[Rfam]
RNA sequence: UUCGAGUAAGCCGAAAAUCGUAAGAGUAGGCA
Numbered sequence: 001u002u003c004g005a006g007u008a009a010g011c012c013g014a015a016a017a018u019c020g021u022a023a024g025a026g027u028a029g030g031c032a
Base pairs, nucleotide, nucleotide: 003020004019005018010031011030012029
Notes
The family of this 32-nucleotide sequence from Flavobacterium humi is "DUF805b RNA". A search with the family's covariance model found it, with a score of 36 bits. The organism belongs to Flavobacterium, within Bacteria. The base pairs follow the family's consensus structure, which is taken from published work. Its Rfam clan is "DUF805 clan".